[Rfam]
Rfam assigns this 56-nucleotide RNA to the family "Plastid-psbA-3 3UTR RNA". Its Rfam clan is "Plastid-psbA 3UTR RNA clan". The base pairs follow the family's consensus structure, which was predicted with LocARNA. Plastid psbA-3 is a non-coding RNA (ncRNA) present in plastids. It was identified in inverted repeat sequences in the 3 prime untranslate region (3UTR) of photosystem II quinone-binding protein (psbA). The sequence is in the family's curated seed alignment.
RNA sequence: GGGGAGCAAUAACAAAACUCUUGUUCUAUCAAGAGGUUGUUAUUGCUCCUUUUUUU
Numbered sequence: 001g002g003g004g005a006g007c008a009a010u011a012a013c014a015a016a017a018c019u020c021u022u023g024u025u026c027u028a029u030c031a032a033g034a035g036g037u038u039g040u041u042a043u044u045g046c047u048c049c050u051u052u053u054u055u056u
Stems, first nucleotide, its partner, number of pairs: 001051013018035006